[Rfam]
RNA sequence: UCGAGACGCCGUGAUUCGAAAAGGCCCGGGACGGAUAAACUGGUCGCGGACCGUCAUCGGGCGCAGCCCCCGGAGGCGUGCCGCCAUGUUCAGCCAGCAGCCGCUGCAACCCCAGGGAG
Numbered sequence: 001u002c003g004a005g006a007c008g009c010c011g012u013g014a015u016u017c018g019a020a021a022a023g024g025c026c027c028g029g030g031a032c033g034g035a036u037a038a039a040c041u042g043g044u045c046g047c048g049g050a051c052c053g054u055c056a057u058c059g060g061g062c063g064c065a066g067c068c069c070c071c072g073g074a075g076g077c078g079u080g081c082c083g084c085c086a087u088g089u090u091c092a093g094c095c096a097g098c099a100g101c102c103g104c105u106g107c108a109a110c111c112c113c114a115g116g117g118a119g
Stems, first nucleotide, its partner, number of pairs: 049081001052078003057073005095106004